RNA: Saccharopolyspora sRNA 350
RNA sequence: CGAACGGCCACGUCCGCUCGGGCCCCACCAGCCCGUCGUCGCCCACGUGGUCGCCGUCGGCCAGCACGCCGAGCACGGUCUCGUCGCCGUACUUGCCGGUGCCGACCUUGUUGAGCUUGCCGUGCGCGAUCAGCACCACCUGGUCCGCGCUCUGGCCCGCCUCGACCAGCACCUCGCCCGGGGUGAAGUCGCGCUGCGUGAAGCGGUCGGCCAGCGCGGUGAGCACGGCAUCGGUGCCGAGGUCGCGCAGGAGCGGCAACUCCCGCAGCUCCGGCGGGAUAACCCGCACAUCGGAACCCGUGCUGGAGAACGUGACCCGGCCGUCGCCCACCGUGUAGCUCAACCUGCGGUUGACCCGGUACGCGCCGCUGGACACGGGAAUCCACGGCAGCACGCGCAGCAACCACCGCGAGGUGAUUCCCUGCAUCUGCGGAAUCGUUUUGGUCGUCGUGGCGAGAUUCCGCGCGGCUUGCGUGCUCAGGCUCAGUUGCGACUGCUGG
Numbered sequence: 001c002g003a004a005c006g007g008c009c010a011c012g013u014c015c016g017c018u019c020g021g022g023c024c025c026c027a028c029c030a031g032c033c034c035g036u037c038g039u040c041g042c043c044c045a046c047g048u049g050g051u052c053g054c055c056g057u058c059g060g061c062c063a064g065c066a067c068g069c070c071g072a073g074c075a076c077g078g079u080c081u082c083g084u085c086g087c088c089g090u091a092c093u094u095g096c097c098g099g100u101g102c103c104g105a106c107c108u109u110g111u112u113g114a115g116c117u118u119g120c121c122g123u124g125c126g127c128g129a130u131c132a133g134c135a136c137c138a139c140c141u142g143g144u145c146c147g148c149g150c151u152c153u154g155g156c157c158c159g160c161c162u163c164g165a166c167c168a169g170c171a172c173c174u175c176g177c178c179c180g181g182g183g184u185g186a187a188g189u190c191g192c193g194c195u196g197c198g199u200g201a202a203g204c205g206g207u208c209g210g211c212c213a214g215c216g217c218g219g220u221g222a223g224c225a226c227g228g229c230a231u232c233g234g235u236g237c238c239g240a241g242g243u244c245g246c247g248c249a250g251g252a253g254c255g256g257c258a259a260c261u262c263c264c265g266c267a268g269c270u271c272c273g274g275c276g277g278g279a280u281a282a283c284c285c286g287c288a289c290a291u292c293g294g295a296a297c298c299c300g301u302g303c304u305g306g307a308g309a310a311c312g313u314g315a316c317c318c319g320g321c322c323g324u325c326g327c328c329c330a331c332c333g334u335g336u337a338g339c340u341c342a343a344c345c346u347g348c349g350g351u352u353g354a355c356c357c358g359g360u361a362c363g364c365g366c367c368g369c370u371g372g373a374c375a376c377g378g379g380a381a382u383c384c385a386c387g388g389c390a391g392c393a394c395g396c397g398c399a400g401c402a403a404c405c406a407c408c409g410c411g412a413g414g415u416g417a418u419u420c421c422c423u424g425c426a427u428c429u430g431c432g433g434a435a436u437c438g439u440u441u442u443g444g445u446c447g448u449c450g451u452g453g454c455g456a457g458a459u460u461c462c463g464c465g466c467g468g469c470u471u472g473c474g475u476g477c478u479c480a481g482g483c484u485c486a487g488u489u490g491c492g493a494c495u496g497c498u499g500g
Stems, first nucleotide, its partner, number of pairs: 006383002008378002012321002016317001018315003022311001025308001028306005034300002038298001042294002045291001047226002051222007058104004068096001070095004075090005110215004116209001120205001123202001124199005133190001137188001143184001146182001148180002152176001153171002159166001227289001233283001235281002237278002242275004247271001249270002253264001255262001322335003344372002347369004355363001384424002387421002390418001392416003396411003400408001430469002433466001436463001438461001440458003444454002471500001473496002477492001479490003